[Rfam]
RNA sequence: GCGGUUGAAUGUAUUGGGAGAGAGCGAAAAUGUCGUCACCGAAGGAGCAAAUUCCAAAAAGACCCUUUGGAAUUAAUCUCUCAGGUAAAAGAACCAAUACAGGACGCAACUCUGGAGAGCGCAAAUUCAUUGCCACCAAAGGGGACCCGCUAUUUUUGCGGAUUAAACUUUCAGGUAAAAGGACAGAGAG
Numbered sequence: 001g002c003g004g005u006u007g008a009a010u011g012u013a014u015u016g017g018g019a020g021a022g023a024g025c026g027a028a029a030a031u032g033u034c035g036u037c038a039c040c041g042a043a044g045g046a047g048c049a050a051a052u053u054c055c056a057a058a059a060a061g062a063c064c065c066u067u068u069g070g071a072a073u074u075a076a077u078c079u080c081u082c083a084g085g086u087a088a089a090a091g092a093a094c095c096a097a098u099a100c101a102g103g104a105c106g107c108a109a110c111u112c113u114g115g116a117g118a119g120c121g122c123a124a125a126u127u128c129a130u131u132g133c134c135a136c137c138a139a140a141g142g143g144g145a146c147c148c149g150c151u152a153u154u155u156u157u158g159c160g161g162a163u164u165a166a167a168c169u170u171u172c173a174g175g176u177a178a179a180a181g182g183a184c185a186g187a188g189a190g
Stems, first nucleotide, its partner, number of pairs: 001107003010101008022037001024036004038086003044082001045080003051073008110188005119134001121133004135176003141172001143169002

Shown here is a 190-nucleotide RNA sequence from Mesobacillus campisalis, a member of the family "glycine-GGAnGA riboswitch aptamer". Lineage of the source: Bacteria > Bacillati > Bacilli > Bacillaceae > Mesobacillus. Its family is annotated with glycine biosynthetic process in the Gene Ontology. Clan: Glycine riboswitch clan. glycine-GGAnGA riboswitch is a variant of glycine riboswitch that have in common a U69A change.